[Rfam]
RNA sequence: ACACGGGAAAGGAGGUGGUCCGAGACAUGAUCUCUACUUGGACGCGUGAGGUGGCUGCCCGCUAGCAGUCCACGGACGGACCUGCCGGUCCUCCGCCGACGGCGGCGAGAUCCCGGCAGUCACCGACACCCGCGGGGGCCGUGGCUCGUCCACCACGGCACCCUGGCCAGGCCAGGAGCCCGCGGGUGCCCCCAU
Dot-bracket structure: .............((((((..................................))))))((((..(.(((..(((.................)))..))))..)))).................(.((((((((((...(((((........))))).....................)))))))))))......